[Rfam]
RNA sequence: CGCGUGAUGAGGUGCAGAAGGCAUGUCGCCGCUACGGCGGUGGCUCGCGUAGCCGUCUGGCUGUGCGCGUACUGUGAGCUACUGUACUCCAUGGGUGAACAAUCUCUGAUG
Number, nucleotide and partner (000 for none) at each position: 001c097002g096003c095004g000005u094006g000007a092008u091009g090010a000011g088012g087013u086014g085015c084016a083017g082018a000019a000020g080021g079022c078023a000024u000025g044026u043027c042028g041029c040030c039031g000032c037033u000034a000035c000036g000037g032038c000039g030040g029041u028042g027043g026044c025045u000046c067047g066048c065049g064050u063051a062052g061053c060054c059055g000056u000057c000058u000059g054060g053061c052062u051063g050064u049065g048066c047067g046068c000069g000070u000071a000072c000073u000074g000075u000076g000077a000078g022079c021080u020081a000082c017083u016084g015085u014086a013087c012088u011089c000090c009091a008092u007093g000094g005095g003096u002097g001098a000099a000100c000101a000102a000103u000104c000105u000106c000107u000108g000109a000110u000111g000
A member of the RNA family "Small nucleolar RNA TBR2" from Trypanosoma brucei, 111 nucleotides long. Its family is annotated with nucleolus and RNA processing in the Gene Ontology. Rfam describes the family as follows. TBR4 was one of seventeen snoRNAs identified in Trypanosoma brucei. By type it is a C/D-box small nucleolar RNA. Pairs were carried over by alignment from the consensus structure, which was predicted with RNAfold.